[Rfam]
The record is a 361-nucleotide sequence from Neorickettsia helminthoeca, which matches "Bacterial RNase P class A" in Rfam. Lineage of the source: Bacteria > Pseudomonadati > Alphaproteobacteria > Neorickettsia > Neorickettsia helminthoeca. It scores 284 bits against the family's covariance model.
RNA sequence: GAGGUACCUGAUAUAGUCGCUGCUUGUUCCCGCGUUUUGUGGGAUUGAGGAGAGGAAAGUCUGGGCUCCACGAGAGAAUGGUAGCGGAUAACGUCCGCCGGAGUCUGUGACUUCAGGACAAGUGCUACAGAAAACAACCGCCUGUUUUCAGGUAAGGGUGAAAAGGUGUGGUAAGAGCACACCGCGUCCGUGGCAACAUGGAUGGCGAAAGUAAACUCUACCAGGAGCAAGACCAAAUUAGAAAGAAAGUGUACUCUCGCACGUUUGAUCUUUCGGGUGGGUCGCUUGAGGUGCAUAGCAAUGUGCAUCCUAGAUGAAUGACUAUGACUAACAGAACCCAGCUUAUGAGGGUACCUCUGUU
Numbered sequence: 001g002a003g004g005u006a007c008c009u010g011a012u013a014u015a016g017u018c019g020c021u022g023c024u025u026g027u028u029c030c031c032g033c034g035u036u037u038u039g040u041g042g043g044a045u046u047g048a049g050g051a052g053a054g055g056a057a058a059g060u061c062u063g064g065g066c067u068c069c070a071c072g073a074g075a076g077a078a079u080g081g082u083a084g085c086g087g088a089u090a091a092c093g094u095c096c097g098c099c100g101g102a103g104u105c106u107g108u109g110a111c112u113u114c115a116g117g118a119c120a121a122g123u124g125c126u127a128c129a130g131a132a133a134a135c136a137a138c139c140g141c142c143u144g145u146u147u148u149c150a151g152g153u154a155a156g157g158g159u160g161a162a163a164a165g166g167u168g169u170g171g172u173a174a175g176a177g178c179a180c181a182c183c184g185c186g187u188c189c190g191u192g193g194c195a196a197c198a199u200g201g202a203u204g205g206c207g208a209a210a211g212u213a214a215a216c217u218c219u220a221c222c223a224g225g226a227g228c229a230a231g232a233c234c235a236a237a238u239u240a241g242a243a244a245g246a247a248a249g250u251g252u253a254c255u256c257u258c259g260c261a262c263g264u265u266u267g268a269u270c271u272u273u274c275g276g277g278u279g280g281g282u283c284g285c286u287u288g289a290g291g292u293g294c295a296u297a298g299c300a301a302u303g304u305g306c307a308u309c310c311u312a313g314a315u316g317a318a319u320g321a322c323u324a325u326g327a328c329u330a331a332c333a334g335a336a337c338c339c340a341g342c343u344u345a346u347g348a349g350g351g352u353a354c355c356u357c358u359g360u361u
Stems, first nucleotide, its partner, number of pairs: 001357009011346001012326007020052002023049004028044005057344003061341005066227004074262001076260001079223005084098005099116001100114004117218002122216002124212003138157002140153005165183006184206001185204008231283004241274006252267002256263001290309008